[Rfam]
RNA sequence: UCAGCCGGCCGGGCGGCCGCUUCGAGCCUAGCUCGGGGAGGAAAGUCCGGGCUCCAUGGAAGCAAGGUGCCGGAUAACGUCCGGCGGGGGAAACCCUAGGGAAAGUGCCACAGAGAGCAGACCGCCCCGUAUACGGGGUAAGGGUGAAAGGGUGCGGUAAGAGCGCACCGCGGACGCAGCAAUGUGGACGGCAAGGUAAACCCCACCAGGAGCAAAACCGAAUAGGGACGACAGGCGUUCGCGCCAGGCCUGCUUCCAGGCUCGUCGUCCGGGUUGGUUGCUUGAGGCGGUCAGCAAUGAUCGUCCCAGAGGAAUGGUCGCCACGUCCAAGGUCUUAGACUUUGGGCCCUACAGAACCCGGCUUACAGGCCGGCUGACCCC
Numbered sequence: 001u002c003a004g005c006c007g008g009c010c011g012g013g014c015g016g017c018c019g020c021u022u023c024g025a026g027c028c029u030a031g032c033u034c035g036g037g038g039a040g041g042a043a044a045g046u047c048c049g050g051g052c053u054c055c056a057u058g059g060a061a062g063c064a065a066g067g068u069g070c071c072g073g074a075u076a077a078c079g080u081c082c083g084g085c086g087g088g089g090g091a092a093a094c095c096c097u098a099g100g101g102a103a104a105g106u107g108c109c110a111c112a113g114a115g116a117g118c119a120g121a122c123c124g125c126c127c128c129g130u131a132u133a134c135g136g137g138g139u140a141a142g143g144g145u146g147a148a149a150g151g152g153u154g155c156g157g158u159a160a161g162a163g164c165g166c167a168c169c170g171c172g173g174a175c176g177c178a179g180c181a182a183u184g185u186g187g188a189c190g191g192c193a194a195g196g197u198a199a200a201c202c203c204c205a206c207c208a209g210g211a212g213c214a215a216a217a218c219c220g221a222a223u224a225g226g227g228a229c230g231a232c233a234g235g236c237g238u239u240c241g242c243g244c245c246a247g248g249c250c251u252g253c254u255u256c257c258a259g260g261c262u263c264g265u266c267g268u269c270c271g272g273g274u275u276g277g278u279u280g281c282u283u284g285a286g287g288c289g290g291u292c293a294g295c296a297a298u299g300a301u302c303g304u305c306c307c308a309g310a311g312g313a314a315u316g317g318u319c320g321c322c323a324c325g326u327c328c329a330a331g332g333u334c335u336u337a338g339a340c341u342u343u344g345g346g347c348c349c350u351a352c353a354g355a356a357c358c359c360g361g362c363u364u365a366c367a368g369g370c371c372g373g374c375u376g377a378c379c380c381c
Stems, first nucleotide, its partner, number of pairs: 001377010011366001012322007020038008043364003047361005052212004061255002066207004070084005085099001086097004100203002105201002107197003122143002124139006151169006170192001171190002175186004216279004226270006247262005286305008
RNA: Bacterial RNase P class A
Organism: Microvirga tunisiensis